The family of this 86-nucleotide RNA sequence from Paenibacillus spiritus is "c-di-GMP-I-GGC riboswitch aptamer".
RNA sequence: CCAGUAAAGGGUAAACUUGCCGAAAGGCAGGGACACAAAGUCGCGGGUCUAAGGCGAACCAUGCUACGACAGCCGGACUGCCUGGG
Numbered sequence: 001c002c003a004g005u006a007a008a009g010g011g012u013a014a015a016c017u018u019g020c021c022g023a024a025a026g027g028c029a030g031g032g033a034c035a036c037a038a039a040g041u042c043g044c045g046g047g048u049c050u051a052a053g054g055c056g057a058a059c060c061a062u063g064c065u066a067c068g069a070c071a072g073c074c075g076g077a078c079u080g081c082c083u084g085g086g
Stems, first nucleotide, its partner, number of pairs: 001086001003083002011036002016031006034072001039079004044075003047070003

Description:
NCBI's taxonomy places the organism under Bacteria, Bacillota, Caryophanales, Paenibacillaceae, Paenibacillus.